[Rfam]
RNA sequence: CGGCGCAAUGCGAUAGGGUCAGGCUGCCCCAGAACUGCCAAAGUGAGCGGUGCGUCACAGAAACGGAAGUCCGUUUUUCGUCAGACUGGCAUUUCCGAGCCGCAAGAAUGACGGCUUGGCCAUCGGCUAAGGAUUGCCGGUGAACAGUCUGUGCAGCGCACUCUGGUAACAAAUCUGGGAAGAAAACGCCCGCAAACGGACUGCGGGUGUUUUUCU
Numbered sequence: 001c002g003g004c005g006c007a008a009u010g011c012g013a014u015a016g017g018g019u020c021a022g023g024c025u026g027c028c029c030c031a032g033a034a035c036u037g038c039c040a041a042a043g044u045g046a047g048c049g050g051u052g053c054g055u056c057a058c059a060g061a062a063a064c065g066g067a068a069g070u071c072c073g074u075u076u077u078u079c080g081u082c083a084g085a086c087u088g089g090c091a092u093u094u095c096c097g098a099g100c101c102g103c104a105a106g107a108a109u110g111a112c113g114g115c116u117u118g119g120c121c122a123u124c125g126g127c128u129a130a131g132g133a134u135u136g137c138c139g140g141u142g143a144a145c146a147g148u149c150u151g152u153g154c155a156g157c158g159c160a161c162u163c164u165g166g167u168a169a170c171a172a173a174u175c176u177g178g179g180a181a182g183a184a185a186a187c188g189c190c191c192g193c194a195a196a197c198g199g200a201c202u203g204c205g206g207g208u209g210u211u212u213u214u215c216u
Stems, first nucleotide, its partner, number of pairs: 001049002004047001006045002022039003026035001029178005050161006063081006069201007082151007182214013